The family of this 90-nucleotide sequence from Capsella rubella is "mir-156 microRNA precursor family". For this family Rfam cites "microRNAs: tiny regulators with great potential" (Ambros, Cell, 2001). Gene Ontology terms of the family: RISC complex and miRNA-mediated post-transcriptional gene silencing. From the family's description: This family represents the plant microRNA (miRNA) precursor mir-156. Taxonomically the source falls in Capsella (Eukaryota, Embryophyta, Magnoliopsida, eudicotyledons).

[Rfam]
RNA sequence: UUGACAGAAGAGAGUGAGCACACAAAGGGGAAGUUGUAUAAAAUUCUUUGUAUAUGGUUUGCUUUUGCGUGCUCACUCUCUUUCUGUCAU
Numbered sequence: 001u002u003g004a005c006a007g008a009a010g011a012g013a014g015u016g017a018g019c020a021c022a023c024a025a026a027g028g029g030g031a032a033g034u035u036g037u038a039u040a041a042a043a044u045u046c047u048u049u050g051u052a053u054a055u056g057g058u059u060u061g062c063u064u065u066u067g068c069g070u071g072c073u074c075a076c077u078c079u080c081u082u083u084c085u086g087u088c089a090u
Stems, first nucleotide, its partner, number of pairs: 002089008010080012023067006